Shown here is an 89-nucleotide RNA from Paenibacillus sp. HGF7, a member of the family "BsrC". The base pairs follow the family's consensus structure, which was predicted with CMfinder. The family's RNA type in Rfam is small RNA. Rfam's curators write: The 301 nucleotide sequence from Kouji Nakamura has been trimmed to a highly conserved ~85 nucleotide long core to form this family. Rfam 15.1 lists 572 matches to the family in 553 species.

RNA sequence: UGUUCCUAAAACAAUGAAAGCCCUGCCUCUCUUUCAUCCUUGCGGCUCCGAUGACCGCGCCAGUGUGAAUCAAGUAACACGGUAAACAA
Numbered sequence: 001u002g003u004u005c006c007u008a009a010a011a012c013a014a015u016g017a018a019a020g021c022c023c024u025g026c027c028u029c030u031c032u033u034u035c036a037u038c039c040u041u042g043c044g045g046c047u048c049c050g051a052u053g054a055c056c057g058c059g060c061c062a063g064u065g066u067g068a069a070u071c072a073a074g075u076a077a078c079a080c081g082g083u084a085a086a087c088a089a
Stems, first nucleotide, its partner, number of pairs: 034068003039063002041059005047053001